[Rfam]
RNA sequence: GUUGCAGAGCCAAUUUGGCAUUCUGUCCACCUCCACCAAUAAUUCUUGGUAGUGGAGGUGGCCAAUAUGUCAAACAGGCAGUGUAAA
Numbered sequence: 001g002u003u004g005c006a007g008a009g010c011c012a013a014u015u016u017g018g019c020a021u022u023c024u025g026u027c028c029a030c031c032u033c034c035a036c037c038a039a040u041a042a043u044u045c046u047u048g049g050u051a052g053u054g055g056a057g058g059u060g061g062c063c064a065a066u067a068u069g070u071c072a073a074a075c076a077g078g079c080a081g082u083g084u085a086a087a
Base pairs, nucleotide, nucleotide: 011077015073016072017071018070019069020068024064025063027061028060029059030058031057032056033055034054035053036052
A member of the RNA family "MIR394 microRNA precursor family" from Gossypium anomalum, 87 nucleotides long. The match comes from Rfam's covariance-model search (62 bits).